Overview:
A member of the RNA family "U5 spliceosomal RNA" from Pan paniscus, 115 nucleotides long. On this family, see Zwieb, Nucleic Acids Res 1997: "The uRNA database". Its family is annotated with U5 snRNP and spliceosomal tri-snRNP complex assembly in the Gene Ontology. It is annotated as a spliceosomal small nuclear RNA. Rfam's curators write: U5 RNA is a component of both types of known spliceosome. The precise function of this molecule is unknown, though it is known that the 5' loop is required for splice site selection and p220 binding, and that both the 3' stem-loop and the Sm site are important for Sm protein binding and cap methylation. The organism belongs to Pan, within Eukaryota.
[Rfam]
RNA sequence: AGUCUCCGGUUUCUCUUCAUAACGAAUAAAUCUUUCGCCUUUUACUAAAGAUUUCCGUGGAGGGAAACAAUUGAGUUUAUGGUACAAUUUUUUGAAGUCCUGCUUAGGCAGGACU
Numbered sequence: 001a002g003u004c005u006c007c008g009g010u011u012u013c014u015c016u017u018c019a020u021a022a023c024g025a026a027u028a029a030a031u032c033u034u035u036c037g038c039c040u041u042u043u044a045c046u047a048a049a050g051a052u053u054u055c056c057g058u059g060g061a062g063g064g065a066a067a068c069a070a071u072u073g074a075g076u077u078u079a080u081g082g083u084a085c086a087a088u089u090u091u092u093u094g095a096a097g098u099c100c101u102g103c104u105u106a107g108g109c110a111g112g113a114c115u
Stems, first nucleotide, its partner, number of pairs: 006075001009068011028054008095115001097114006